[Rfam]
RNA: glmS glucosamine-6-phosphate activated ribozyme aptamer
RNA sequence: AAAGCAAUCAAAGCGCCAGAACUGUGCUUUUUGAAGAAGGACAGUUGACGAGGUGGAGGUUCAUCGAAUCAUUCGGCGGAUGCCUCCCGGCUGAUACUGCAGCCGACAAGCAUGACCUAAAACGGAAAGGCGACUUUCCCGACAAGAGGUCCUGCACCAGUGCAU
Numbered sequence: 001a002a003a004g005c006a007a008u009c010a011a012a013g014c015g016c017c018a019g020a021a022c023u024g025u026g027c028u029u030u031u032u033g034a035a036g037a038a039g040g041a042c043a044g045u046u047g048a049c050g051a052g053g054u055g056g057a058g059g060u061u062c063a064u065c066g067a068a069u070c071a072u073u074c075g076g077c078g079g080a081u082g083c084c085u086c087c088c089g090g091c092u093g094a095u096a097c098u099g100c101a102g103c104c105g106a107c108a109a110g111c112a113u114g115a116c117c118u119a120a121a122a123c124g125g126a127a128a129g130g131c132g133a134c135u136u137u138c139c140c141g142a143c144a145a146g147a148g149g150u151c152c153u154g155c156a157c158c159a160g161u162g163c164a165u
Stems, first nucleotide, its partner, number of pairs: 020046006027039001029037001055087005064076004088105006110155003114151003124139006